RNA sequence: CUGCACAAACGUAGAAAAGGCUAUGCUAAAAUUUAUUGAAAUACCGUAGCCUUAAGCGACAGUGCAAAGAGAAAACGCUGAGUUAACUCAGCGGCGGCCAGACAACCGCUGAGAUGAAUCCACAGAUGAGUUCCAUUUUACAAUCCUACUUGUCUACUAAUUUCAUCUCACAAUU
Numbered sequence: 001c002u003g004c005a006c007a008a009a010c011g012u013a014g015a016a017a018a019g020g021c022u023a024u025g026c027u028a029a030a031a032u033u034u035a036u037u038g039a040a041a042u043a044c045c046g047u048a049g050c051c052u053u054a055a056g057c058g059a060c061a062g063u064g065c066a067a068a069g070a071g072a073a074a075a076c077g078c079u080g081a082g083u084u085a086a087c088u089c090a091g092c093g094g095c096g097g098c099c100a101g102a103c104a105a106c107c108g109c110u111g112a113g114a115u116g117a118a119u120c121c122a123c124a125g126a127u128g129a130g131u132u133c134c135a136u137u138u139u140a141c142a143a144u145c146c147u148a149c150u151u152g153u154c155u156a157c158u159a160a161u162u163u164c165a166u167c168u169c170a171c172a173a174u175u
Stems, first nucleotide, its partner, number of pairs: 002066005010058003015053002020045001022043003027038002111169008129151002132148001
RNA: small nucleolar RNA snoR143
Organism: Capsicum baccatum